[Rfam]
RNA sequence: AAACAGGCUCCUUUCGGAGCCACAGAAUAUCACUUAAAGAGAGAAAU
Numbered sequence: 001a002a003a004c005a006g007g008c009u010c011c012u013u014u015c016g017g018a019g020c021c022a023c024a025g026a027a028u029a030u031c032a033c034u035u036a037a038a039g040a041g042a043g044a045a046a047u
Stems, first nucleotide, its partner, number of pairs: 006021006
RNA: Histone 3' UTR stem-loop
Organism: Homarus americanus